This 182-nucleotide sequence from Paenibacillus sambharensis belongs to the Rfam family "c-di-AMP riboswitch aptamer (ydaO/yuaA leader)".
RNA sequence: CAUACUUGUUCGCUGAAUUCCCGAAGGGGAAACGGGGAAUCGCAGACAGAGCAGCUUGUGUGAGAGCAAGCACUGCUUCUGUAUGACAGAUGAAGCCUCCUCGGCCGCAGCCGCCAGGAGGCAGGGCGACUCUCACCGUCCCCAUCCGGCAGCGGUACCCGUAAGCAAAGAGGAGAGAGGAG
Numbered sequence: 001c002a003u004a005c006u007u008g009u010u011c012g013c014u015g016a017a018u019u020c021c022c023g024a025a026g027g028g029g030a031a032a033c034g035g036g037g038a039a040u041c042g043c044a045g046a047c048a049g050a051g052c053a054g055c056u057u058g059u060g061u062g063a064g065a066g067c068a069a070g071c072a073c074u075g076c077u078u079c080u081g082u083a084u085g086a087c088a089g090a091u092g093a094a095g096c097c098u099c100c101u102c103g104g105c106c107g108c109a110g111c112c113g114c115c116a117g118g119a120g121g122c123a124g125g126g127c128g129a130c131u132c133u134c135a136c137c138g139u140c141c142c143c144a145u146c147c148g149g150c151a152g153c154g155g156u157a158c159c160c161g162u163a164a165g166c167a168a169a170g171a172g173g174a175g176a177g178a179g180g181a182g
Stems, first nucleotide, its partner, number of pairs: 012166003018031003032162005042087001089146002096121006124141004